[Rfam]
Shown here is an 89-nucleotide RNA sequence from Prosthecochloris aestuarii, a member of the family "SAM-Chlorobi RNA". Rfam's curators put it in the seed alignment. The base pairs follow the family's consensus structure, which is taken from published work. NCBI's taxonomy places the organism under Bacteria, Pseudomonadati, Chlorobiia, Prosthecochloris, Prosthecochloris aestuarii.
RNA sequence: AGGCAUCCCCAUUACCUAUGGACACGGUGCCGCAAUCUCCGGAAGAGAUCGUUCGACCGGAAGAUUGUUGUCGGGUUUUCCGUGUCCAU
Numbered sequence: 001a002g003g004c005a006u007c008c009c010c011a012u013u014a015c016c017u018a019u020g021g022a023c024a025c026g027g028u029g030c031c032g033c034a035a036u037c038u039c040c041g042g043a044a045g046a047g048a049u050c051g052u053u054c055g056a057c058c059g060g061a062a063g064a065u066u067g068u069u070g071u072c073g074g075g076u077u078u079u080c081c082g083u084g085u086c087c088a089u
Base pairs, nucleotide, nucleotide: 002031003030004029005028006027007026009021010020011019012018033067034066035065036064037063038062039060040059041058042057045054046053